[Rfam]
RNA: RNase MRP
RNA sequence: GUCCGUGCCGAAGGCCUGUUUCCUAGGCUACAUACGGGGGACUGGUUCCUGACAAGUGCCUAGGGGAAAGUCCCCGGACCGCGGGCAGAGAGUGCCGCGUGCGCGCGCACGCAGGGCCGCCCGCCCGUCACUGUCUAGGCCGCCGAGACGCGACCCCACGGCGGGGAGCCGAGCGGCGUGCGGCGGGCGGCCGUCCGUCAGCUCCUCCAGUUACGCAGGCAGUGCGCCUUCGCGCGCCAACCACACGGGGCUCAUUCUCGGCGCGGC
Numbered sequence: 001g002u003c004c005g006u007g008c009c010g011a012a013g014g015c016c017u018g019u020u021u022c023c024u025a026g027g028c029u030a031c032a033u034a035c036g037g038g039g040g041a042c043u044g045g046u047u048c049c050u051g052a053c054a055a056g057u058g059c060c061u062a063g064g065g066g067a068a069a070g071u072c073c074c075c076g077g078a079c080c081g082c083g084g085g086c087a088g089a090g091a092g093u094g095c096c097g098c099g100u101g102c103g104c105g106c107g108c109a110c111g112c113a114g115g116g117c118c119g120c121c122c123g124c125c126c127g128u129c130a131c132u133g134u135c136u137a138g139g140c141c142g143c144c145g146a147g148a149c150g151c152g153a154c155c156c157c158a159c160g161g162c163g164g165g166g167a168g169c170c171g172a173g174c175g176g177c178g179u180g181c182g183g184c185g186g187g188c189g190g191c192c193g194u195c196c197g198u199c200a201g202c203u204c205c206u207c208c209a210g211u212u213a214c215g216c217a218g219g220c221a222g223u224g225c226g227c228c229u230u231c232g233c234g235c236g237c238c239a240a241c242c243a244c245a246c247g248g249g250g251c252u253c254a255u256u257c258u259c260g261g262c263g264c265g266g267c
Stems, first nucleotide, its partner, number of pairs: 003266009014220006022064007037050005069252002072250004084096004097112006114192002119188006129180003140176004161169002222237006